Overview:
The record is a 75-nucleotide RNA from Gossypium schwendimanii, which matches "Plastid-ycf2 5UTR RNA" in Rfam. Rfam describes the family as follows. Plastid ycf2 is a non-coding RNA (ncRNA) recognised in plastids. It was found in the prime untranslated region (5UTR) of ycf2 genes, it presents a tRNA-like motif which suggests it can be involved in mRNA maturation, particularly involved in defining the precise 5' end of the transcript. A reference for the family is Richter et al. (2023), "Retrograde signaling in plants: A critical review focusing on the GUN pathway and beyond", Plant Commun. The organism belongs to Gossypium, within Eukaryota. Rfam 15.1 lists 3,521 matches to the family in 417 species.

[Rfam]
RNA sequence: AUGCAUCCAGUAGGAAUUGAACCUACGAAUUCGCCAAUUAUGAGUUGGAUGCCUUAACUAUUCAGCCAUGAAAGC
Dot-bracket structure: ..((.(.(.(((((.......))))).............(((.((((((((.......)))))))))))).).))